RNA sequence: CUACUAGAAAAUAAGUUUUUCUUAAGUUACUUUGAGUUUAUUUAUAAUUACUAUAUUAAUUUAUGAAAUUAUAGUAACUCCAUAUUAAGUGGUUUAUUAUAACGUUAUGGUAAAUAACUUCAUGUGUUAUAGCAACCCAACUAUCGUAAAUAUGUAUUGACAUUAUCGUAAAUUAGUAUAUAAAAUUAUCGUAAAUGGAGGUGGCUACGGAAUAACUUAUUUUGUAGUAG
Number, nucleotide and partner (000 for none) at each position: 001c230002u229003a228004c227005u226006a225007g000008a223009a222010a221011a220012u219013a218014a217015g216016u215017u214018u000019u212020u211021c210022u209023u000024a000025a206026g205027u204028u203029a202030c201031u200032u199033u198034g000035a000036g000037u194038u193039u000040a192041u000042u191043u000044a189045u188046a187047a186048u185049u184050a000051c000052u180053a179054u178055a177056u176057u175058a174059a173060u172061u171062u170063a169064u168065g000066a000067a000068a166069u165070u000071a163072u162073a000074g000075u000076a157077a000078c000079u000080c000081c000082a000083u148084a147085u146086u000087a000088a000089g144090u143091g142092g141093u140094u139095u134096a000097u132098u131099a130100u129101a128102a127103c126104g125105u124106u000107a000108u000109g119110g118111u000112a000113a000114a000115u000116a000117a000118c110119u109120u000121c000122a000123u000124g105125u104126g103127u102128u101129a100130u099131a098132g097133c000134a095135a000136c000137c000138c000139a094140a093141c092142u091143a090144u089145c000146g085147u084148a083149a000150a000151u000152a000153u000154g000155u000156a000157u076158u000159g000160a000161c000162a072163u071164u000165a069166u068167c000168g064169u063170a062171a061172a060173u059174u058175a057176g056177u055178a054179u053180a052181u000182a000183a000184a049185a048186u047187u046188a045189u044190c000191g042192u040193a038194a037195a000196u000197g000198g033199a032200g031201g030202u029203g028204g027205c026206u025207a000208c000209g022210g021211a020212a019213u000214a017215a016216c015217u014218u013219a012220u011221u010222u009223u008224g000225u006226a005227g004228u003229a002230g001
Rfam assigns this 230-nucleotide RNA from Miscanthus lutarioriparius to the family "MIR6217 microRNA precursor family". The family has 2 seed sequences and 2,266 matches in Rfam 15.1. The family's consensus secondary structure was predicted with RNAalifold.